Rfam assigns this 107-nucleotide sequence from Bacillus gobiensis to the family "SAM riboswitch aptamer (S box leader)".

RNA sequence: UACUUAUCCAGAGCGGCGGAGGGACUGGCCCAAUGAAACUCGGGAAACCAGCAGAAUCACUAUGUUGCUCAUUCCAGGAACACAUGGUUGUGUUCAAAAGAUGGGGA
Numbered sequence: 001u002a003c004u005u006a007u008c009c010a011g012a013g014c015g016g017c018g019g020a021g022g023g024a025c026u027g028g029c030c031c032a033a034u035g036a037a038a039c040u041c042g043g044g045a046a047a048c049c050a051g052c053a054g055a056a057u058c059a060c061u062a063u064g065u066u067g068c069u070c071a072u073u074c075c076a077g078g079a080a081c082a083c084a085u086g087g088u089u090g091u092g093u094u095c096a097a098a099a100g101a102u103g104g105g106g107a
Stems, first nucleotide, its partner, number of pairs: 001107001003105006013041001015040002021031003025077004042069002045066001047065002073099001078095006